Phenylalanine leader peptide: a 119-nucleotide RNA sequence from Argiope bruennichi. By type it is a cis-regulatory leader. Its family is annotated with cellular amino acid metabolic process in the Gene Ontology.
RNA sequence: AACCCCAAAAAUUUUUUUUUUUUUUUUUUCCCCCCCCCCCCGGGUUUUUUGGGGGAAAAAAAAAUUUUUUUAAGGGGGGGGGGAAAAAAAAAAAAAAAAAAAAAAAGAUUUUUUUUUUU
Number, nucleotide and partner (000 for none) at each position: 001a000002a000003c000004c000005c000006c000007a000008a000009a000010a000011a000012u000013u000014u000015u000016u097017u096018u095019u094020u000021u092022u091023u090024u089025u088026u087027u086028u085029u084030c083031c082032c081033c080034c079035c000036c077037c076038c075039c074040c000041c000042g000043g000044g000045u000046u000047u060048u059049u058050u057051g000052g000053g000054g000055g000056a000057a050058a049059a048060a047061a071062a070063a069064a068065u000066u000067u000068u064069u063070u062071u061072a000073a000074g039075g038076g037077g036078g000079g034080g033081g032082g031083g030084a029085a028086a027087a026088a025089a024090a023091a022092a021093a000094a019095a018096a017097a016098a000099a000100a000101a114102a113103a112104a111105a000106a000107g000108a000109u000110u000111u104112u103113u102114u101115u000116u000117u000118u000119u000
It scores 55 bits against the family's covariance model. The family's consensus secondary structure was predicted with CMfinder.